[Rfam]
RNA sequence: CUCUUAUCCAGAGCAGGCGGAGGGACUGGCCCUACGAUGCCCGGCAACCGGUUUUCACGUACUUGUGAUCACACGGUGCUAAUUCCUUCAGGAAAUAUCCUGAGAGAUAAGAG
Numbered sequence: 001c002u003c004u005u006a007u008c009c010a011g012a013g014c015a016g017g018c019g020g021a022g023g024g025a026c027u028g029g030c031c032c033u034a035c036g037a038u039g040c041c042c043g044g045c046a047a048c049c050g051g052u053u054u055u056c057a058c059g060u061a062c063u064u065g066u067g068a069u070c071a072c073a074c075g076g077u078g079c080u081a082a083u084u085c086c087u088u089c090a091g092g093a094a095a096u097a098u099c100c101u102g103a104g105a106g107a108u109a110a111g112a113g
Stems, first nucleotide, its partner, number of pairs: 001113008013042001016041003022032003028086002043080004048076002050072001084105001089102005